A member of the RNA family "Bacterial RNase P class A" from Holospora curviuscula, 367 nucleotides long. It is annotated as a ribozyme. A search with the family's covariance model found it, with a score of 291 bits.

RNA sequence: UCGGAAAGAUGGGCGAGCGCUGUAACACUGUGUGUUAAAGAGGAAAGUCCGGGCUCCAAUAAAACACAACGCCGAGUAACACUCGGCCAGGGUAACUUGAGGGAAAGUGCCACAGAAAAAAUACCGCCUUUUUUUAAAGGUAAGGGUGAAAUGGUGCGGUAAAAGCGCACCGCGUUAGGAGUAAUUCUAUACGGCAAGGUAAACCCCGUUGGGAGCAAGGCCAAAUAGAAGUGACAAGAGUAUAUACAUGCUCGCGUAAUGUUUUUGAGCGUCGUCACUUGGGUAGGCUGCUAAAGUACUUUAGUAAUAAAGUUACAUAGAGAAAUGAUCGCCAAGACAGAACCCGGCUUAUAGUCUUUCCGUUUUU
Numbered sequence: 001u002c003g004g005a006a007a008g009a010u011g012g013g014c015g016a017g018c019g020c021u022g023u024a025a026c027a028c029u030g031u032g033u034g035u036u037a038a039a040g041a042g043g044a045a046a047g048u049c050c051g052g053g054c055u056c057c058a059a060u061a062a063a064a065c066a067c068a069a070c071g072c073c074g075a076g077u078a079a080c081a082c083u084c085g086g087c088c089a090g091g092g093u094a095a096c097u098u099g100a101g102g103g104a105a106a107g108u109g110c111c112a113c114a115g116a117a118a119a120a121a122u123a124c125c126g127c128c129u130u131u132u133u134u135u136a137a138a139g140g141u142a143a144g145g146g147u148g149a150a151a152u153g154g155u156g157c158g159g160u161a162a163a164a165g166c167g168c169a170c171c172g173c174g175u176u177a178g179g180a181g182u183a184a185u186u187c188u189a190u191a192c193g194g195c196a197a198g199g200u201a202a203a204c205c206c207c208g209u210u211g212g213g214a215g216c217a218a219g220g221c222c223a224a225a226u227a228g229a230a231g232u233g234a235c236a237a238g239a240g241u242a243u244a245u246a247c248a249u250g251c252u253c254g255c256g257u258a259a260u261g262u263u264u265u266u267g268a269g270c271g272u273c274g275u276c277a278c279u280u281g282g283g284u285a286g287g288c289u290g291c292u293a294a295a296g297u298a299c300u301u302u303a304g305u306a307a308u309a310a311a312g313u314u315a316c317a318u319a320g321a322g323a324a325a326u327g328a329u330c331g332c333c334a335a336g337a338c339a340g341a342a343c344c345c346g347g348c349u350u351a352u353a354g355u356c357u358u359u360c361c362g363u364u365u366u367u
Stems, first nucleotide, its partner, number of pairs: 002362009011352001012333005018327001020040002023037006045350003049347005054215004063266002067211005072086005087101001088099004102206002107204002109200003124145002126141006153171006172195001173193003176189005219289004229280006259272004296316003299312005